[Rfam]
RNA: SAM riboswitch aptamer (S box leader)
Organism: Chloroherpeton thalassium
RNA sequence: CUGUCAUCAAGAAAGGUGGAGGGAAAGGCCCUGCGAAACCUUGGCAACCGCUCAAAUAAAAAUGUGAGUUGGUGCUAAUUCCUACCCGGUGUAAACUACCAGCGGGAUAGAUGACGG
Numbered sequence: 001c002u003g004u005c006a007u008c009a010a011g012a013a014a015g016g017u018g019g020a021g022g023g024a025a026a027g028g029c030c031c032u033g034c035g036a037a038a039c040c041u042u043g044g045c046a047a048c049c050g051c052u053c054a055a056a057u058a059a060a061a062a063u064g065u066g067a068g069u070u071g072g073u074g075c076u077a078a079u080u081c082c083u084a085c086c087c088g089g090u091g092u093a094a095a096c097u098a099c100c101a102g103c104g105g106g107a108u109a110g111a112u113g114a115c116g117g
Stems, first nucleotide, its partner, number of pairs: 001117008013042005021031003026083003043076004048072002051068004080109001085106004090101001
Dot-bracket structure: ((((((((....(((((...(((..[[[)))......)))))((((.((.((((..........))))..))))))...(]]].((((.(..........).))))..)))))))))